Shown here is a 92-nucleotide sequence from Larimichthys crocea, a member of the family "Vault RNA". It scores 72 bits against the family's covariance model. By type it is a non-coding RNA gene.
RNA sequence: GCGCUGGUUUAGCUCAGUGGUUACUUCGAACAAACUCGUCCUGCUCUCCAUCCCUCCCCGGGAUCGAACCACGGGCGCUGUCCAGUGCUUUU
Numbered sequence: 001g002c003g004c005u006g007g008u009u010u011a012g013c014u015c016a017g018u019g020g021u022u023a024c025u026u027c028g029a030a031c032a033a034a035c036u037c038g039u040c041c042u043g044c045u046c047u048c049c050a051u052c053c054c055u056c057c058c059c060g061g062g063a064u065c066g067a068a069c070c071a072c073g074g075g076c077g078c079u080g081u082c083c084a085g086u087g088c089u090u091u092u
Stems, first nucleotide, its partner, number of pairs: 002087006012076004017072004025068005
Annotation:
Taxonomically the source falls in Larimichthys (Eukaryota, Chordata, Euacanthomorphacea, Eupercaria). The base pairs follow the family's consensus structure, which is taken from published work.